Rfam assigns this 192-nucleotide sequence from Rorippa indica to the family "MIR159 microRNA precursor family". The sequence is in the family's curated seed alignment. The source organism's lineage runs through Eukaryota, Magnoliopsida, malvids, Brassicaceae and Rorippa.
Nucleotides: 192
Base pairs, nucleotide, nucleotide: 013178014177015176016175017174018173019172020171024167025166026165027164028163029162036155058133059132061130062129063128067124068123069122070121075116
Number, partner (000 for none) and nucleotide at each position: 001000u002000a003000u004000a005000u006000u007000a008000a009000g010000g011000g012000a013178g014177a015176g016175c017174u018173u019172c020171c021000u022000u023000g024167a025166g026165u027164c028163c029162a030000u031000u032000c033000a034000c035000a036155g037000g038000u039000c040000g041000u042000g043000a044000u045000a046000u047000g048000a049000u050000u051000c052000a053000a054000u055000u056000a057000g058133c059132u060000u061130c062129c063128g064000a065000c066000u067124c068123a069122u070121u071000c072000a073000u074000c075116c076000a077000a078000a079000u080000a081000u082000c083000g084000a085000g086000u087000c088000a089000c090000c091000a092000a093000a094000a095000u096000u097000u098000g099000a100000a101000c102000u103000a104000g105000a106000c107000u108000c109000g110000u111000u112000a113000a114000a115000u116075g117000a118000a119000u120000g121070a122069a123068u124067g125000a126000u127000g128063c129062g130061g131000u132059a133058g134000a135000c136000a137000a138000a139000u140000u141000g142000g143000a144000u145000c146000a147000u148000u149000g150000a151000u152000u153000c154000u155036c156000u157000c158000u159000g160000a161000u162029u163028g164027g165026a166025c167024u168000g169000a170000a171020g172019g173018g174017a175016g176015c177014u178013c179000c180000c181000u182000c183000u184000c185000u186000u187000u188000a189000g190000g191000u192000a